This 46-nucleotide RNA sequence from Schistosoma haematobium belongs to the Rfam family "Histone 3' UTR stem-loop". Pairs were carried over by alignment from the consensus structure, which is taken from published work. For this family Rfam cites "The sequence of the stem and flanking sequences at the 3' end of histone mRNA are critical determinants for the binding of the stem-loop binding protein" (Williams and Marzluff, Nucleic Acids Res, 1995). Its family is annotated with mRNA 3'-end processing by stem-loop binding and cleavage in the Gene Ontology.

RNA sequence: GUAAAGGCCCUUCUUAGGGCCACUCACAAUUUGAUUUAAAUUCUUU
Numbered sequence: 001g002u003a004a005a006g007g008c009c010c011u012u013c014u015u016a017g018g019g020c021c022a023c024u025c026a027c028a029a030u031u032u033g034a035u036u037u038a039a040a041u042u043c044u045u046u
Stems, first nucleotide, its partner, number of pairs: 006021006